[Rfam]
Rfam assigns this 214-nucleotide RNA from Miscanthus lutarioriparius to the family "MIR6217 microRNA precursor family". Rfam 15.1 lists 2,266 matches to the family in 13 species. The base pairs follow the family's consensus structure, which was predicted with RNAalifold.
RNA sequence: UGGCUACAAAAUAACUUAUUCUGUAGCCACUUUGAGUUACGAUAAUUACUAUGUUAAUUUAUGAGAUUAUAGUAUGUUUACUAUAACAUUAUGGUAAAUAUUUUCAUGUGUUAUAGUAACUCAACUAUCGUAAAUAUGUAUUGACAUUAUCGUAAAUUUAUAUAUAAAAUUAUCGUAAAUGGAGGUGGCUAUAGAAUAACUUAUUUUAUAGCUG
Numbered sequence: 001u002g003g004c005u006a007c008a009a010a011a012u013a014a015c016u017u018a019u020u021c022u023g024u025a026g027c028c029a030c031u032u033u034g035a036g037u038u039a040c041g042a043u044a045a046u047u048a049c050u051a052u053g054u055u056a057a058u059u060u061a062u063g064a065g066a067u068u069a070u071a072g073u074a075u076g077u078u079u080a081c082u083a084u085a086a087c088a089u090u091a092u093g094g095u096a097a098a099u100a101u102u103u104u105c106a107u108g109u110g111u112u113a114u115a116g117u118a119a120c121u122c123a124a125c126u127a128u129c130g131u132a133a134a135u136a137u138g139u140a141u142u143g144a145c146a147u148u149a150u151c152g153u154a155a156a157u158u159u160a161u162a163u164a165u166a167a168a169a170u171u172a173u174c175g176u177a178a179a180u181g182g183a184g185g186u187g188g189c190u191a192u193a194g195a196a197u198a199a200c201u202u203a204u205u206u207u208a209u210a211g212c213u214g
Stems, first nucleotide, its partner, number of pairs: 001214006008207007016199018037178011050164005056158007065151003069147002073134001074128002076125003079118011093103002